This 134-nucleotide RNA from Roseburia sp. 1XD42-69 belongs to the Rfam family "GA-cis RNA".
A search with the family's covariance model found it, with a score of 36 bits.
NCBI's taxonomy places the organism under Bacteria, Clostridia, Lachnospirales, Lachnospiraceae, Roseburia.

RNA sequence: UAUAGGAGGAAGGCAAAUGCAAAGCAUUUAUUUGAAUGCCUUCCGACGACUUGGAGCCAUAAGGAAUCUCCCCGUAAACGGGUUCCCCCUUAUGGCAAAAGCCGCCGAACUAAGGCGAGGGGGCGUUACCACAU
Numbered sequence: 001u002a003u004a005g006g007a008g009g010a011a012g013g014c015a016a017a018u019g020c021a022a023a024g025c026a027u028u029u030a031u032u033u034g035a036a037u038g039c040c041u042u043c044c045g046a047c048g049a050c051u052u053g054g055a056g057c058c059a060u061a062a063g064g065a066a067u068c069u070c071c072c073c074g075u076a077a078a079c080g081g082g083u084u085c086c087c088c089c090u091u092a093u094g095g096c097a098a099a100a101g102c103c104g105c106c107g108a109a110c111u112a113a114g115g116c117g118a119g120g121g122g123g124c125g126u127u128a129c130c131a132c133a134u
Stems, first nucleotide, its partner, number of pairs: 008044006015029005053124001057120002